[Rfam]
Overview
UnaL2 LINE 3' element: a 54-nucleotide RNA from Coregonus sp. 'balchen'. Taxonomically the source falls in Coregonus (Eukaryota, Neopterygii, Euteleosteomorpha, Salmonidae). The family's consensus secondary structure is taken from published work.

RNA sequence: AUUCACUAAAAAUGUAAGUCGCUCUGGAUUAGAGCGUCUGCUAAAUGACGUAAA
Numbered sequence: 001a002u003u004c005a006c007u008a009a010a011a012a013u014g015u016a017a018g019u020c021g022c023u024c025u026g027g028a029u030u031a032g033a034g035c036g037u038c039u040g041c042u043a044a045a046u047g048a049c050g051u052a053a054a
Stems, first nucleotide, its partner, number of pairs: 013043001014041003020036006